[Rfam]
A member of the RNA family "Makes More Granules Regulator RNA (mmgR)" from Rhodopseudomonas faecalis, 72 nucleotides long. The organism belongs to Rhodopseudomonas, within Bacteria. SuhB later renamed mmgR (makes more granules regulator) was a putative non-coding RNA found multiple times in the Agrobacterium tumefaciens genome and related alpha-proteobacteria. Other non-coding RNAs uncovered in the same analysis include: speF, ybhL, metA, and serC.Several studies inSinorhizobium meliloti showed that suhB element is indeed a non-coding RNA:firstly it was detected on Northern blot and called Sm8RNA, secondly in an RNAseq study referred to as SmelC689.The mutant phenotype's (strain lacking the small RNA) cytoplasm contains higher content of polyhydroxybutyrate (PBH)storage granules than wild type strain. The sRNA is required to limit the PBH intracellular accumulation when the nitrogen-fixing Sinorhizobium meliloti is under condition of surplus carbon in relation to nitrogen. It has been renamed to mmgR. Further study confirmed that mmgR fine-tunes the regulation of PBH storage.Northern blot confirmed the expression of the sRNA in other rhizobia species. MmgR homologues were found in most alpha-proteobacteria. By type it is a small RNA.
RNA sequence: CUAUCGUGCCCUCCUUGGGCGUUUCCUCCCUAGACUUGGCCGCCUGCAAAGGCGGCCUUUUUAUUGGCCGAC
Numbered sequence: 001c002u003a004u005c006g007u008g009c010c011c012u013c014c015u016u017g018g019g020c021g022u023u024u025c026c027u028c029c030c031u032a033g034a035c036u037u038g039g040c041c042g043c044c045u046g047c048a049a050a051g052g053c054g055g056c057c058u059u060u061u062u063a064u065u066g067g068c069c070g071a072c
Stems, first nucleotide, its partner, number of pairs: 008020004038057008